[Rfam]
RNA sequence: UGACGGGGGCCCGCACAAGCGGUGGAGCGUGUGGUUUAAUUCGAUGCUAAGCGAAGGACCUUACCAAGGUUUGACAUGCUGAUAGUAGUGAAUUGAAAGAGGAACGACCACACUUUGUGUGGAGUCAGCACAGGUGGUGCACGGCCGUCGUCAGCUCGUGCCGUGAGGUGUUGGGUUAAGUCCCGCAACGAGCGCAACCCCUGCUCUUAGUUGCCAGCGGUAAGGCCGGGCACUCUAAGAGGACCGCCGCCGACGAGGCGGAGGAAGGGGGGGAUGACGUCAGGUAUCGUGCCCCUUAUAUCUUGGGCGACACACGCGCUACAAUGGGUUGGACAGAAGGGACCGAGACAGCGAUGUGGAGGAAAUCCUCAAACCAACCCCCAGUUCAGAUUGCAGGCUGCAACCCGCCUGCAUGAAGCCGGAAUCGCUAGUAAUCGCAGAUCAGCCAAGCUGCGGUGAAUACGUUCCCGGGCCUUGUACACACCGCCCGUCAAGCCACCCGAGUUGGUAACACCUGAAGAUGAGUAUCCUAACCGAAAGGAGGGAGCUUGUUUAGGGUGGGAUUGGCAAGGGGGGCUAAGUCGUAACAAGG
Numbered sequence: 001u002g003a004c005g006g007g008g009g010c011c012c013g014c015a016c017a018a019g020c021g022g023u024g025g026a027g028c029g030u031g032u033g034g035u036u037u038a039a040u041u042c043g044a045u046g047c048u049a050a051g052c053g054a055a056g057g058a059c060c061u062u063a064c065c066a067a068g069g070u071u072u073g074a075c076a077u078g079c080u081g082a083u084a085g086u087a088g089u090g091a092a093u094u095g096a097a098a099g100a101g102g103a104a105c106g107a108c109c110a111c112a113c114u115u116u117g118u119g120u121g122g123a124g125u126c127a128g129c130a131c132a133g134g135u136g137g138u139g140c141a142c143g144g145c146c147g148u149c150g151u152c153a154g155c156u157c158g159u160g161c162c163g164u165g166a167g168g169u170g171u172u173g174g175g176u177u178a179a180g181u182c183c184c185g186c187a188a189c190g191a192g193c194g195c196a197a198c199c200c201c202u203g204c205u206c207u208u209a210g211u212u213g214c215c216a217g218c219g220g221u222a223a224g225g226c227c228g229g230g231c232a233c234u235c236u237a238a239g240a241g242g243a244c245c246g247c248c249g250c251c252g253a254c255g256a257g258g259c260g261g262a263g264g265a266a267g268g269g270g271g272g273g274a275u276g277a278c279g280u281c282a283g284g285u286a287u288c289g290u291g292c293c294c295c296u297u298a299u300a301u302c303u304u305g306g307g308c309g310a311c312a313c314a315c316g317c318g319c320u321a322c323a324a325u326g327g328g329u330u331g332g333a334c335a336g337a338a339g340g341g342a343c344c345g346a347g348a349c350a351g352c353g354a355u356g357u358g359g360a361g362g363a364a365a366u367c368c369u370c371a372a373a374c375c376a377a378c379c380c381c382c383a384g385u386u387c388a389g390a391u392u393g394c395a396g397g398c399u400g401c402a403a404c405c406c407g408c409c410u411g412c413a414u415g416a417a418g419c420c421g422g423a424a425u426c427g428c429u430a431g432u433a434a435u436c437g438c439a440g441a442u443c444a445g446c447c448a449a450g451c452u453g454c455g456g457u458g459a460a461u462a463c464g465u466u467c468c469c470g471g472g473c474c475u476u477g478u479a480c481a482c483a484c485c486g487c488c489c490g491u492c493a494a495g496c497c498a499c500c501c502g503a504g505u506u507g508g509u510a511a512c513a514c515c516u517g518a519a520g521a522u523g524a525g526u527a528u529c530c531u532a533a534c535c536g537a538a539a540g541g542a543g544g545g546a547g548c549u550u551g552u553u554u555a556g557g558g559u560g561g562g563a564u565u566g567g568c569a570a571g572g573g574g575g576g577c578u579a580a581g582u583c584g585u586a587a588c589a590a591g592g
Stems, first nucleotide, its partner, number of pairs: 001481002003478003007475007015465002019428005024322001026320008034311002040055004064306007077130007088105002093100002108122005133295002136293004142289002144285003147281001149279002154193006160169003172185004199273004204241007214230002218228003244264002247261005326380007338369003343362002348357003387418001392413007434457007484591001486588001489584002494578004499573003504568006512560004520553006528546004534541002
Annotation: Bacterial small subunit ribosomal RNA: a 592-nucleotide part of an RNA from Mesotoga prima. NCBI's taxonomy places the organism under Bacteria, Thermotogati, Kosmotogales, Kosmotogaceae, Mesotoga prima. Its family is annotated with structural constituent of ribosome and ribosome in the Gene Ontology. The match comes from Rfam's covariance-model search (1479 bits).